[Rfam]
RNA sequence: CAAACGGCCCUUUUUAGGGCCACCAAUUCUUUCAUACGAAGGACAU
Numbered sequence: 001c002a003a004a005c006g007g008c009c010c011u012u013u014u015u016a017g018g019g020c021c022a023c024c025a026a027u028u029c030u031u032u033c034a035u036a037c038g039a040a041g042g043a044c045a046u
Stems, first nucleotide, its partner, number of pairs: 006021006
RNA: Histone 3' UTR stem-loop